[Rfam]
Rfam assigns this 111-nucleotide RNA sequence from Saccharibacillus sacchari to the family "TPP riboswitch aptamer (THI element)". The match comes from Rfam's covariance-model search (60 bits). The organism belongs to Saccharibacillus sacchari, within Bacteria. From the family's description: Vitamin B(1) in its active form thiamin pyrophosphate (TPP) is an essential coenzyme that is synthesised by coupling of pyrimidine and thiazole moieties in bacteria.
RNA sequence: GAAUAAGAAUGCGGGUGCUGGAUGAAGUCCGGCUGAGAUGGAGACCUUGUGUGUCCGGACCGUUAAUCUGAUCCAGGUAAUGCUGGCGUAGAGAAUCCCAUUCGAAUUGUU
Numbered sequence: 001g002a003a004u005a006a007g008a009a010u011g012c013g014g015g016u017g018c019u020g021g022a023u024g025a026a027g028u029c030c031g032g033c034u035g036a037g038a039u040g041g042a043g044a045c046c047u048u049g050u051g052u053g054u055c056c057g058g059a060c061c062g063u064u065a066a067u068c069u070g071a072u073c074c075a076g077g078u079a080a081u082g083c084u085g086g087c088g089u090a091g092a093g094a095a096u097c098c099c100a101u102u103c104g105a106a107u108u109g110u111u
Base pairs, nucleotide, nucleotide: 007098009096010095011063012062013061014060016057017033018032019031020030021029040056041055042054044052067092068091069090070089073086074085075084076083